[Rfam]
RNA sequence: CUGUCUGUGGUAAAGUGCUUACAGUGCAGGUAGUAGCCAUUUCCAGCCUACCGCAGUGUGAGCACUUCUUUCAUAUGCAG
Numbered sequence: 001c002u003g004u005c006u007g008u009g010g011u012a013a014a015g016u017g018c019u020u021a022c023a024g025u026g027c028a029g030g031u032a033g034u035a036g037c038c039a040u041u042u043c044c045a046g047c048c049u050a051c052c053g054c055a056g057u058g059u060g061a062g063c064a065c066u067u068c069u070u071u072c073a074u075a076u077g078c079a080g
Stems, first nucleotide, its partner, number of pairs: 004077001006075002009072002013067011025055003029052005
RNA: mir-17 microRNA precursor family